[Rfam]
Nucleotides: 179
Base pairs, nucleotide, nucleotide: 052125053124054123056122057121058120059119061117062116063115066112067111073106074105075104076103079088080087081086091100092099093098
Number, partner (000 for none) and nucleotide at each position: 001000g002000g003000c004000c005000g006000u007000a008000u009000c010000g011000a012000u013000u014000c015000g016000a017000u018000c019000g020000g021000g022000a023000u024000a025000c026000u027000c028000a029000u030000c031000a032000a033000a034000u035000u036000a037000c038000a039000u040000u041000g042000a043000a044000a045000a046000c047000u048000g049000a050000g051000u052125u053124g054123u055000c056122u057121u058120u059119u060000u061117g062116c063115c064000a065000a066112u067111g068000g069000c070000g071000g072000g073106c074105c075104a076103c077000a078000u079088c080087u081086c082000u083000u084000c085000g086081g087080a088079g089000a090000a091100g092099u093098u094000g095000u096000a097000a098093a099092a100091c101000c102000g103076g104075u105074g106073g107000a108000u109000u110000a111067c112066a113000a114000a115063g116062g117061c118000u119059g120058a121057g122056a123054g124053c125052g126000c127000u128000c129000u130000u131000c132000a133000u134000c135000u136000u137000a138000u139000a140000a141000c142000a143000a144000a145000g146000g147000a148000g149000u150000u151000u152000u153000c154000a155000u156000c157000a158000c159000a160000u161000c162000c163000u164000c165000g166000a167000u168000g169000c170000g171000g172000c173000c174000c175000u176000u177000u178000c179000u
The record is a 179-nucleotide RNA from Prevotella sp. tf2-5, which matches "Bacteroidales-1 6S-Bacteroidales RNA suggested" in Rfam. Rfam describes the family as follows. Bacteroidales-1 was first reported in a comparative genomics-based approach of genome and metagenome sequences from Weinberg et al. 2010 In a high-resolution transcriptome map study of Bacteroides thetaiotaomicron, Ryan et al. 2020 report this sRNA as 6S RNA homologue of Bacteroides, in the study they obtain evidence of small product RNAs (pRNAs) related to 6S function. The family's consensus secondary structure is taken from published work. It is annotated as a small RNA. The organism belongs to Prevotella, within Bacteria.